[Rfam]
RNA sequence: GCUUUCAACAUCCCCGUUCCGGAUCAGCGUUCGCCCUUUGCGGAAUAACCGCAAUCGCAUUCGCAUCUGGGGCUGAAGGC
Numbered sequence: 001g002c003u004u005u006c007a008a009c010a011u012c013c014c015c016g017u018u019c020c021g022g023a024u025c026a027g028c029g030u031u032c033g034c035c036c037u038u039u040g041c042g043g044a045a046u047a048a049c050c051g052c053a054a055u056c057g058c059a060u061u062c063g064c065a066u067c068u069g070g071g072g073c074u075g076a077a078g079g080c
Stems, first nucleotide, its partner, number of pairs: 001080007016073007027064003033058001

A member of the RNA family "nadA riboswitch", 80 nucleotides long. It is one of the family's seed sequences. The literature on the family includes a 2020 paper in RNA by Huang et al., "Structure and ligand binding of the ADP-binding domain of the NAD(+) riboswitch".